Rfam assigns this 78-nucleotide RNA sequence from Desulfosarcina alkanivorans to the family "c-di-GMP-I riboswitch aptamer". Lineage of the source: Bacteria > Thermodesulfobacteriota > Desulfobacterales > Desulfosarcinaceae > Desulfosarcina. The family's consensus secondary structure is taken from published work. The match comes from Rfam's covariance-model search (43 bits).

[Rfam]
RNA sequence: UUCAGAAAAAGCCAACCCCACAAGGUCGAGGGGGCGGAAAGCCACGAGUCAUGGGUCCAUGGCAGUCGGGUUGCCUGA
Numbered sequence: 001u002u003c004a005g006a007a008a009a010a011g012c013c014a015a016c017c018c019c020a021c022a023a024g025g026u027c028g029a030g031g032g033g034g035c036g037g038a039a040a041g042c043c044a045c046g047a048g049u050c051a052u053g054g055g056u057c058c059a060u061g062g063c064a065g066u067c068g069g070g071u072u073g074c075c076u077g078a
Base pairs, nucleotide, nucleotide: 012037013036017032018031019030021028040072041071042070043069045068046067047066048063049062050061051060052059053058